RNA sequence: UUGACCGUGAAGCUCCACUCGUCGCGGUGCCCGGUCAGCGCCUGCUCGCCGAAGUACUCGCCGUCGCCGAGGGUGUCGAGCACGGUUUCCGUGCCGUACUCGCCGAGACCGAUCUUGCUGGCCUUGCCGUGUGCCAUCAGCACGAGCCGGUCGGCGGCCUGUCCUUUCUGGAUGAUCAGGUCACCUGCCUCGAACUCCUGUUGUUCGAACCGUUCGGCGAUCGCGGCCAGCGCAUCGUCGUCCUCGAAGGAGCGCAGCAGCGCCAGUUCCCGCAGCUCCGGCGGGACGACGCUGAUCCGCCCCGCGGCGCUGGUGAAGCUGACCAGUCCGUCGCCGAUGGCGUAGGUCAGUCGCCGGUUCACCCGGUAGGCGCCACCUUCGGCCUGUACCCACGGCAGGACGCGCAACAGCCAGCGCGGCGUGAUCCCCUGCAUCUGCGGUACGGACUUGGUCGUCGUCGCCAGAUUUCGCGCGGCCUGGGUGCCGAGGCUCAUCUGUUGCUGCGACUGGG
Numbered sequence: 001u002u003g004a005c006c007g008u009g010a011a012g013c014u015c016c017a018c019u020c021g022u023c024g025c026g027g028u029g030c031c032c033g034g035u036c037a038g039c040g041c042c043u044g045c046u047c048g049c050c051g052a053a054g055u056a057c058u059c060g061c062c063g064u065c066g067c068c069g070a071g072g073g074u075g076u077c078g079a080g081c082a083c084g085g086u087u088u089c090c091g092u093g094c095c096g097u098a099c100u101c102g103c104c105g106a107g108a109c110c111g112a113u114c115u116u117g118c119u120g121g122c123c124u125u126g127c128c129g130u131g132u133g134c135c136a137u138c139a140g141c142a143c144g145a146g147c148c149g150g151u152c153g154g155c156g157g158c159c160u161g162u163c164c165u166u167u168c169u170g171g172a173u174g175a176u177c178a179g180g181u182c183a184c185c186u187g188c189c190u191c192g193a194a195c196u197c198c199u200g201u202u203g204u205u206c207g208a209a210c211c212g213u214u215c216g217g218c219g220a221u222c223g224c225g226g227c228c229a230g231c232g233c234a235u236c237g238u239c240g241u242c243c244u245c246g247a248a249g250g251a252g253c254g255c256a257g258c259a260g261c262g263c264c265a266g267u268u269c270c271c272g273c274a275g276c277u278c279c280g281g282c283g284g285g286a287c288g289a290c291g292c293u294g295a296u297c298c299g300c301c302c303c304g305c306g307g308c309g310c311u312g313g314u315g316a317a318g319c320u321g322a323c324c325a326g327u328c329c330g331u332c333g334c335c336g337a338u339g340g341c342g343u344a345g346g347u348c349a350g351u352c353g354c355c356g357g358u359u360c361a362c363c364c365g366g367u368a369g370g371c372g373c374c375a376c377c378u379u380c381g382g383c384c385u386g387u388a389c390c391c392a393c394g395g396c397a398g399g400a401c402g403c404g405c406a407a408c409a410g411c412c413a414g415c416g417c418g419g420c421g422u423g424a425u426c427c428c429c430u431g432c433a434u435c436u437g438c439g440g441u442a443c444g445g446a447c448u449u450g451g452u453c454g455u456c457g458u459c460g461c462c463a464g465a466u467u468u469c470g471c472g473c474g475g476c477c478u479g480g481g482u483g484c485c486g487a488g489g490c491u492c493a494u495c496u497g498u499u500g501c502u503g504c505g506a507c508u509g510g511g
Stems, first nucleotide, its partner, number of pairs: 007389003011385002014382002021324001025321004031315001035313008046304001048301001050299002054233002057230002060227005065111002075103001077102004082097005117222001119220001122217002126213002129210002131206001133204002136201001140197001144195001148192002153189005160178002164174001166172001234296004240290003244286002250282001254278001256277003260271001262269001329342004353377001356374002360372001362370002391431002394428002397425001400422002403418003437476002440473001443470004448464005484511002487508002

Record summary:
Saccharopolyspora sRNA 350: a 511-nucleotide sequence from Kibdelosporangium phytohabitans. A reference for the family is Liu et al. (2013), "Prediction and characterization of small non-coding RNAs related to secondary metabolites in Saccharopolyspora erythraea", PLoS One. By type it is an antisense RNA.